[Rfam]
Nucleotides: 128
Stems, first nucleotide, its partner, number of pairs: 001030004010022005037083011050071001053069002055066004085104008105128005
Number, partner (000 for none) and nucleotide at each position: 001030g002029a003028c004027c005000u006000a007000a008000c009000c010022c011021c012020c013019g014018a015000u016000u017000u018014u019013c020012g021011g022010g023000a024000u025000a026000u027004g028003g029002u030001c031000u032000a033000a034000a035000a036000a037083c038082u039081c040080a041079u042078c043077c044076u045075a046074c047073a048000u049000a050071g051000a052000g053069a054068c055066g056065g057064u058063u059000u060000u061000c062000c063058g064057a065056c066055c067000a068054g069053u070000a071050c072000u073047u074046g075045u076044a077043g078042g079041a080040u081039g082038a083037g084000u085104c086103u087102a088101c089100u090099c091098u092097c093000g094000a095000a096000a097092g098091g099090g100089g101088g102087u103086a104085g105128u106127g107126a108125u109124a110000u111000c112000u113000c114000c115000g116000a117000a118000a119000g120000g121000a122000u123000u124109u125108a126107u127106c128105a
The record is a 128-nucleotide sequence, which matches "LOOT RNA" in Rfam. Rfam classes the family as a small RNA.